Rfam assigns this 104-nucleotide RNA from Priestia veravalensis to the family "Purine riboswitch aptamer". Rfam's curators write: Riboswitches are metabolite binding domains within certain messenger RNAs that serve as precision sensors for their corresponding targets.

RNA sequence: UGUAAUGUUAAAUUUAAAAAUCGUAUAUCCUCAGAAAUAUGGUCUGAGAGUCUCUACCCAAUUCCCGUAUAAAGAAUUGGACUACGAGUUAAAUUUUACUUUAU
Numbered sequence: 001u002g003u004a005a006u007g008u009u010a011a012a013u014u015u016a017a018a019a020a021u022c023g024u025a026u027a028u029c030c031u032c033a034g035a036a037a038u039a040u041g042g043u044c045u046g047a048g049a050g051u052c053u054c055u056a057c058c059c060a061a062u063u064c065c066c067g068u069a070u071a072a073a074g075a076a077u078u079g080g081a082c083u084a085c086g087a088g089u090u091a092a093a094u095u096u097u098a099c100u101u102u103a104u
Stems, first nucleotide, its partner, number of pairs: 018090002021087005030048006058080007
Lineage of the source: Bacteria > Bacillati > Bacillota > Bacilli > Priestia.